[Rfam]
RNA sequence: GUACAUCCAGUAGGAAUUGAACCUACGCAUUCUCCAAUUAUGAGUUGGGCGUUUUAACUAUUUACCCAUGGAUGC
Numbered sequence: 001g002u003a004c005a006u007c008c009a010g011u012a013g014g015a016a017u018u019g020a021a022c023c024u025a026c027g028c029a030u031u032c033u034c035c036a037a038u039u040a041u042g043a044g045u046u047g048g049g050c051g052u053u054u055u056a057a058c059u060a061u062u063u064a065c066c067c068a069u070g071g072a073u074g075c
Base pairs, nucleotide, nucleotide: 004074005073006072007071008070010026011025012024013023014022040069041068042067044066046064047063048062049061051059
Plastid-ycf2 5UTR RNA: a 75-nucleotide RNA from Gossypium gossypioides. NCBI's taxonomy places the organism under Eukaryota, Gunneridae, Pentapetalae, rosids, Gossypium. Rfam 15.1 lists 3,521 matches to the family in 417 species. On this family, see Richter et al., Plant Commun 2023: "Retrograde signaling in plants: A critical review focusing on the GUN pathway and beyond". It scores 80 bits against the family's covariance model. Rfam classes the family as a cis-regulatory element. About the family: Plastid ycf2 is a non-coding RNA (ncRNA) recognised in plastids. The base pairs follow the family's consensus structure, which was predicted with LocARNA.